[Rfam]
RNA sequence: CCCACCUGAAGGUGCCUAUAUACUGGACAGGGUCCAGAUGGCCCUAAAGGAUUCCUCGACUCUAACCUGAAAAGGCGAGCCUGAGAUGACAGGGUGGUUUUUAUGGAUGUCUUUUGUCCACCCGUUCACGUCCUCCGCAAUUCUUGCUACAAGAUGGAGAGAUUACAAAAACUGGUCCUUGUU
Dot-bracket structure: ......(..(((.(((.......................)))))).).....((((((.((....(.(....)...)))..))))..))................(((((.((((((.............((((((.....((((.....)))).)))).))..))))))))..)))......
Rfam assigns this 183-nucleotide part of an RNA from Fusarium vanettenii to the family "Ascomycota telomerase RNA". A reference for the family is Qi et al. (2013), "The common ancestral core of vertebrate and fungal telomerase RNAs", Nucleic Acids Res. By type it is a non-coding RNA gene. The source organism's lineage runs through Eukaryota, Opisthokonta, Fungi, Fusarium and Fusarium vanettenii. The family has 4 seed sequences and 475 matches in Rfam 15.1.